[Rfam]
RNA sequence: GGUUUAAUGCUAAUCGUGAUAGGGGUUGUUUUCUAAUGAACACCUAAACUGUUAGCAUUAACCC
Dot-bracket structure: ...(((((((((((.....((((.(((...........))).))))....)))))))))))...
The record is a 64-nucleotide RNA from Chanos chanos, which matches "mir-155 microRNA precursor family" in Rfam. Lineage of the source: Eukaryota > Gnathostomata > Ostariophysi > Gonorynchiformes > Chanos. A search with the family's covariance model found it, with a score of 66 bits. Rfam links the family to the GO terms RISC complex and miRNA-mediated post-transcriptional gene silencing.